RNA sequence: ACAAUGAUACUCCCUUACAGUCACAGCUUGAGCGUUAGAAGUGUCGUACGCAAUGAGUAGGGUUGGAUGAGAACCAUGCAAGGGUGAGAUUCCCGUGG
Numbered sequence: 001a002c003a004a005u006g007a008u009a010c011u012c013c014c015u016u017a018c019a020g021u022c023a024c025a026g027c028u029u030g031a032g033c034g035u036u037a038g039a040a041g042u043g044u045c046g047u048a049c050g051c052a053a054u055g056a057g058u059a060g061g062g063u064u065g066g067a068u069g070a071g072a073a074c075c076a077u078g079c080a081a082g083g084g085u086g087a088g089a090u091u092c093c094c095g096u097g098g
Stems, first nucleotide, its partner, number of pairs: 012095001013062006063081003067077003082094003

Description: The family of this 98-nucleotide sequence is "pemK RNA". The sequence is in the family's curated seed alignment.